This 92-nucleotide RNA from bacterium D16-34 belongs to the Rfam family "SAM riboswitch aptamer (S box leader)". Its family is annotated with regulation of gene expression in the Gene Ontology.

[Rfam]
RNA sequence: UAUUCAUCAAGAGUUGGGCGAGAGAGUUGGCUCGAAGACCCCAGCACCAACCGGCCAAGGAGGCACGGUGGUACUGCCAACACCGAUGAAAG
Numbered sequence: 001u002a003u004u005c006a007u008c009a010a011g012a013g014u015u016g017g018g019c020g021a022g023a024g025a026g027u028u029g030g031c032u033c034g035a036a037g038a039c040c041c042c043a044g045c046a047c048c049a050a051c052c053g054g055c056c057a058a059g060g061a062g063g064c065a066c067g068g069u070g071g072u073a074c075u076g077c078c079a080a081c082a083c084c085g086a087u088g089a090a091a092g
Stems, first nucleotide, its partner, number of pairs: 001092001003090006013045001015043004022033003027080004046072004051068002053064001055062001076084001